[Rfam]
RNA sequence: GGGGGUAAAUCCUUAGAGCCCCCAGCGUGGCCGUGUUAAUAGUGGUGUCUUUGGCCGGGCAUCAUGGUUAGUGAAUC
Numbered sequence: 001g002g003g004g005g006u007a008a009a010u011c012c013u014u015a016g017a018g019c020c021c022c023c024a025g026c027g028u029g030g031c032c033g034u035g036u037u038a039a040u041a042g043u044g045g046u047g048u049c050u051u052u053g054g055c056c057g058g059g060c061a062u063c064a065u066g067g068u069u070a071g072u073g074a075a076u077c
Stems, first nucleotide, its partner, number of pairs: 001023006036071005042065009